[Rfam]
RNA: nrdJ RNA
RNA sequence: ACCUGUUGCGGGCGAGGUGAGUGGGUGCCCGCAAUACCAGACAGAACACGUGCCACGGGAACAAUCGGGGCACUUCAGGGCGUU
Numbered sequence: 001a002c003c004u005g006u007u008g009c010g011g012g013c014g015a016g017g018u019g020a021g022u023g024g025g026u027g028c029c030c031g032c033a034a035u036a037c038c039a040g041a042c043a044g045a046a047c048a049c050g051u052g053c054c055a056c057g058g059g060a061a062c063a064a065u066c067g068g069g070g071c072a073c074u075u076c077a078g079g080g081c082g083u084u
Stems, first nucleotide, its partner, number of pairs: 004036011050073005056067002
Dot-bracket structure: ...(((((((((((...........))))))))))).............(((((.((........)).)))))...........